A member of the RNA family "mir-2 microRNA precursor family" from Nasonia vitripennis, 68 nucleotides long. Rfam links the family to the GO terms RISC complex and miRNA-mediated post-transcriptional gene silencing. The sequence is in the family's curated seed alignment. A reference for the family is Lee and Ambros (2001), "An extensive class of small RNAs in Caenorhabditis elegans", Science.
RNA sequence: UCGCCCGUCAGAGUGGUUGUGAUAUGGUGCUAUUGAACGCAUAUCACAGCCAGCUUUGAUGUGCGUAA
Numbered sequence: 001u002c003g004c005c006c007g008u009c010a011g012a013g014u015g016g017u018u019g020u021g022a023u024a025u026g027g028u029g030c031u032a033u034u035g036a037a038c039g040c041a042u043a044u045c046a047c048a049g050c051c052a053g054c055u056u057u058g059a060u061g062u063g064c065g066u067a068a
Base pairs, nucleotide, nucleotide: 006061007060008059009058010057011056012055013054014052015051016050017049018048019047020046021045022044025043026042